[Rfam]
RNA sequence: ACGAGAUGACGAUAGAAAUUCAGUCUGUCAAUCCACUGAUCCCAUUAUAUGGGUUUGAUGAUACAGCGAAUCUCGACAGGUUCUGAUUGU
Numbered sequence: 001a002c003g004a005g006a007u008g009a010c011g012a013u014a015g016a017a018a019u020u021c022a023g024u025c026u027g028u029c030a031a032u033c034c035a036c037u038g039a040u041c042c043c044a045u046u047a048u049a050u051g052g053g054u055u056u057g058a059u060g061a062u063a064c065a066g067c068g069a070a071u072c073u074c075g076a077c078a079g080g081u082u083c084u085g086a087u088u089g090u
Base pairs, nucleotide, nucleotide: 001090002089003088004087

Annotation: A member of the RNA family "Small nucleolar RNA snoR14" from Spinacia oleracea, 90 nucleotides long. The match comes from Rfam's covariance-model search (72 bits). Gene Ontology terms of the family: nucleolus and RNA processing. The literature on the family includes a 2001 paper in RNA by Brown et al., "Multiple snoRNA gene clusters from Arabidopsis". Pairs were carried over by alignment from the consensus structure. By type it is a C/D-box small nucleolar RNA.